[Rfam]
RNA sequence: AGCUGGUCCAAGUGCAAGGGUGUUUACAACUACUUUAUUACAACCAGUUACAGGCUUCUUUGUUCCUUCUCCACUCCCACUGCUUCACUUGACUAGCCUAAC
Numbered sequence: 001a002g003c004u005g006g007u008c009c010a011a012g013u014g015c016a017a018g019g020g021u022g023u024u025u026a027c028a029a030c031u032a033c034u035u036u037a038u039u040a041c042a043a044c045c046a047g048u049u050a051c052a053g054g055c056u057u058c059u060u061u062g063u064u065c066c067u068u069c070u071c072c073a074c075u076c077c078c079a080c081u082g083c084u085u086c087a088c089u090u091g092a093c094u095a096g097c098c099u100a101a102c
Stems, first nucleotide, its partner, number of pairs: 002097007010090002014086001016081001019078002022076001028064003032060001